[Rfam]
RNA sequence: GAGUUAGCCGGAAAAUCGCUGUUGCAAUUGCCGGAAAACUUAGUCAGCUA
Numbered sequence: 001g002a003g004u005u006a007g008c009c010g011g012a013a014a015a016u017c018g019c020u021g022u023u024g025c026a027a028u029u030g031c032c033g034g035a036a037a038a039c040u041u042a043g044u045c046a047g048c049u050a
Base pairs, nucleotide, nucleotide: 001040004037008034009033011032012029013028018048019047020046021045
Shown here is a 50-nucleotide RNA from Polerovirus CPPV2, a member of the family "Exoribonuclease-resistant RNA (xrRNA) plant-infecting virus (class 3)". Rfam links the family to the GO term viral RNA genome replication. Rfam describes the family as follows. Exoribonuclease-resistant RNA (xrRNA) plant-infecting virus (class 3) is a ncRNA that was reported in Plant viruses. It is one of the family's seed sequences. For this family Rfam cites "Exoribonuclease-Resistant RNAs Exist within both Coding and Noncoding Subgenomic RNAs" (Steckelberg et al., mBio, 2018). The family's RNA type in Rfam is cis-regulatory element.